This 89-nucleotide RNA from Botryotinia narcissicola belongs to the Rfam family "tRNA". It scores 53 bits against the family's covariance model.
RNA sequence: GCCUGCUUGGCGCAGUGGUAACGCGUAGCACUUGUAUGGAAAGUAUUUCAGCGAUGCUAAGAUCAUUGGUUCGAUUCCAGUAGUAGGCA
Numbered sequence: 001g002c003c004u005g006c007u008u009g010g011c012g013c014a015g016u017g018g019u020a021a022c023g024c025g026u027a028g029c030a031c032u033u034g035u036a037u038g039g040a041a042a043g044u045a046u047u048u049c050a051g052c053g054a055u056g057c058u059a060a061g062a063u064c065a066u067u068g069g070u071u072c073g074a075u076u077c078c079a080g081u082a083g084u085a086g087g088c089a
Stems, first nucleotide, its partner, number of pairs: 001088007010024003026059005065081005
The family's consensus secondary structure is taken from published work.